[Rfam]
RNA sequence: GAGACACCCUUAUGGGGCAAAACUUGCUUCAGUGGGGCUUUGGUGCUCUCUGAGUCUGCCCCAGGAGUGCAUCCCU
Numbered sequence: 001g002a003g004a005c006a007c008c009c010u011u012a013u014g015g016g017g018c019a020a021a022a023c024u025u026g027c028u029u030c031a032g033u034g035g036g037g038c039u040u041u042g043g044u045g046c047u048c049u050c051u052g053a054g055u056c057u058g059c060c061c062c063a064g065g066a067g068u069g070c071a072u073c074c075c076u
Stems, first nucleotide, its partner, number of pairs: 001075001003073002007069001009067003014062006022055002029053004034048003037044002